A member of the RNA family "6S / SsrS RNA" from Oceanobacillus oncorhynchi, 183 nucleotides long. The match comes from Rfam's covariance-model search (90 bits). Rfam classes the family as a non-coding RNA gene. Taxonomically the source falls in Oceanobacillus (Bacteria, Bacillati, Bacillota, Bacillaceae). Rfam describes the family as follows. E. coli 6S RNA was the first non coding RNA to be sequenced, but its function was unknown until recently. It consists of 184 nucleotides that fold into an extended hairpin structure with a large single-stranded internal bulge. The 6S RNA specifically associates with RNA polymerase holoenzyme containing the sigma70 specificity factor.
RNA sequence: AUCAUCCUGAUGUGUACGUUAACAAUUGGUAUUUUGACCGAACACCUAUAAGUUAGGGAGUCCGAUUGGUCUUUAAAGUGCAUGCAUGCCUCAAGCAGGAAGCAUAAAACCUUUAAAGCAGGACACCCACCUGCCAAAAGCGGGAUCAAAACUUUAUUGUUUGACGGCACUAUCGGGAUUACG
Numbered sequence: 001a002u003c004a005u006c007c008u009g010a011u012g013u014g015u016a017c018g019u020u021a022a023c024a025a026u027u028g029g030u031a032u033u034u035u036g037a038c039c040g041a042a043c044a045c046c047u048a049u050a051a052g053u054u055a056g057g058g059a060g061u062c063c064g065a066u067u068g069g070u071c072u073u074u075a076a077a078g079u080g081c082a083u084g085c086a087u088g089c090c091u092c093a094a095g096c097a098g099g100a101a102g103c104a105u106a107a108a109a110c111c112u113u114u115a116a117a118g119c120a121g122g123a124c125a126c127c128c129a130c131c132u133g134c135c136a137a138a139a140g141c142g143g144g145a146u147c148a149a150a151a152c153u154u155u156a157u158u159g160u161u162u163g164a165c166g167g168c169a170c171u172a173u174c175g176g177g178a179u180u181a182c183g
Stems, first nucleotide, its partner, number of pairs: 002181001004179008012170004017166003032151002035148003038144002056128003060124004067118001072117007084103002089099003